RNA sequence: UUGCAUGUGGACAUGUCGCUUCCUCAUUCCUUUAGGAGCAGUAGUAUACCCAUAACAUGCUACAUUGAAAGUUAUCAGGGCUGCCAUUCUAAUAGUAGAGGUUGAGUAGUAGUGCAUUUCUCCUACACAA
Numbered sequence: 001u002u003g004c005a006u007g008u009g010g011a012c013a014u015g016u017c018g019c020u021u022c023c024u025c026a027u028u029c030c031u032u033u034a035g036g037a038g039c040a041g042u043a044g045u046a047u048a049c050c051c052a053u054a055a056c057a058u059g060c061u062a063c064a065u066u067g068a069a070a071g072u073u074a075u076c077a078g079g080g081c082u083g084c085c086a087u088u089c090u091a092a093u094a095g096u097a098g099a100g101g102u103u104g105a106g107u108a109g110u111a112g113u114g115c116a117u118u119u120c121u122c123c124u125a126c127a128c129a130a
Stems, first nucleotide, its partner, number of pairs: 003060006017041001020038004070121002080110002084106001085104002088101003

About this RNA: The family of this 130-nucleotide sequence from Balaenoptera musculus is "Small nucleolar RNA U109". A search with the family's covariance model found it, with a score of 98 bits. The family has 26 seed sequences and 1,405 matches in Rfam 15.1. The base pairs follow the family's consensus structure, which was predicted with WAR.